[Rfam]
RNA sequence: CAACAAGGUUUCUAGGGUUCCGCAGGUUAAGGUCUGGUCUGGUCCGAGAGAAACGCGCGAAUUUGCGUACACGGAGGGAUAAAAGCCCGGGAGAU
Numbered sequence: 001c002a003a004c005a006a007g008g009u010u011u012c013u014a015g016g017g018u019u020c021c022g023c024a025g026g027u028u029a030a031g032g033u034c035u036g037g038u039c040u041g042g043u044c045c046g047a048g049a050g051a052a053a054c055g056c057g058c059g060a061a062u063u064u065g066c067g068u069a070c071a072c073g074g075a076g077g078g079a080u081a082a083a084a085g086c087c088c089g090g091g092a093g094a095u
Stems, first nucleotide, its partner, number of pairs: 008054005015045002020042002022039001023036005055068005070090001072093001076088003
RNA: Guanidine-I riboswitch aptamer